[Rfam]
RNA: Bacterial RNase P class A
Organism: Mucilaginibacter agri
RNA sequence: AUGGCAAAACGUUCUAUCGCUGUACCGAUGAGAGUCGGAACGGAGGAAAGUCCGGGCAACACAGAGCAUCCUGCUUCCUAACGGGAAGGCGCCGUACCAGCCGGCGACAGCAAGUGCCACAGAAAAAAUACCGCCGCGAUUUAUCGGGGUAAGGGUGAAAACGUGAGGUAAGAGCUCACGGCAUUACCGGGCGACCGGGAUGACGGUAAACCUCAGGAGUUGAAAAACCAAAUAGGUUCUGAAUUUAAAGCUGCUCGCUUUUAUAUGUUGUUCGCAACAUGGUCAGAAUGGGUAGGUUGUUAAAGUUUGGCAGCAAUGUCAAAAUAAGAUUAAUGAUAGAAAUUGCCCUUCGGGGCAACACAGAACCCGGCUUAUAGCUUUGCUGCUGGU
Numbered sequence: 001a002u003g004g005c006a007a008a009a010c011g012u013u014c015u016a017u018c019g020c021u022g023u024a025c026c027g028a029u030g031a032g033a034g035u036c037g038g039a040a041c042g043g044a045g046g047a048a049a050g051u052c053c054g055g056g057c058a059a060c061a062c063a064g065a066g067c068a069u070c071c072u073g074c075u076u077c078c079u080a081a082c083g084g085g086a087a088g089g090c091g092c093c094g095u096a097c098c099a100g101c102c103g104g105c106g107a108c109a110g111c112a113a114g115u116g117c118c119a120c121a122g123a124a125a126a127a128a129u130a131c132c133g134c135c136g137c138g139a140u141u142u143a144u145c146g147g148g149g150u151a152a153g154g155g156u157g158a159a160a161a162c163g164u165g166a167g168g169u170a171a172g173a174g175c176u177c178a179c180g181g182c183a184u185u186a187c188c189g190g191g192c193g194a195c196c197g198g199g200a201u202g203a204c205g206g207u208a209a210a211c212c213u214c215a216g217g218a219g220u221u222g223a224a225a226a227a228c229c230a231a232a233u234a235g236g237u238u239c240u241g242a243a244u245u246u247a248a249a250g251c252u253g254c255u256c257g258c259u260u261u262u263a264u265a266u267g268u269u270g271u272u273c274g275c276a277a278c279a280u281g282g283u284c285a286g287a288a289u290g291g292g293u294a295g296g297u298u299g300u301u302a303a304a305g306u307u308u309g310g311c312a313g314c315a316a317u318g319u320c321a322a323a324a325u326a327a328g329a330u331u332a333a334u335g336a337u338a339g340a341a342a343u344u345g346c347c348c349u350u351c352g353g354g355g356c357a358a359c360a361c362a363g364a365a366c367c368c369g370g371c372u373u374a375u376a377g378c379u380u381u382g383c384u385g386c387u388g389g390u
Base pairs, nucleotide, nucleotide: 002385003384004383005382006381007380008379010377011375012341013340014339015338016337017336018335020043021042022041023040025038026037027036028035048373049372050371052370053369054368055367056366057222058221059220060219064273065272066271067270069218070217071216072215073214074088075087076086077085078084089108090106091105092104093103109213110212114211115210116207117206118205131154132153133150134149135148137146138145139144162180163179164178165177166176167175181204182202183201184200185199187198188197189196190195226298227297228296229295236289237288238287239286240285241284265280266279267278268277306323307322308321309320310319311318312317